RNA sequence: UCACUUCUACCCGUAGAUCCGAACUUGUGUCCCCUCAUUACCACAAGUUUGAUUUUACGGGCUGAUGUGGG
Numbered sequence: 001u002c003a004c005u006u007c008u009a010c011c012c013g014u015a016g017a018u019c020c021g022a023a024c025u026u027g028u029g030u031c032c033c034c035u036c037a038u039u040a041c042c043a044c045a046a047g048u049u050u051g052a053u054u055u056u057a058c059g060g061g062c063u064g065a066u067g068u069g070g071g
Stems, first nucleotide, its partner, number of pairs: 002069003006065002010061003015056003020051010
Dot-bracket structure: .(((.((..(((..(((..((((((((((............))))))))))..)))..)))..)).)))..
Rfam assigns this 71-nucleotide sequence from Trichonephila clavata to the family "mir-10 microRNA precursor family". The base pairs follow the family's consensus structure, which was predicted with PFOLD. A reference for the family is Lee and Ambros (2001), "An extensive class of small RNAs in Caenorhabditis elegans", Science. Rfam links the family to the GO terms miRNA-mediated post-transcriptional gene silencing and RISC complex.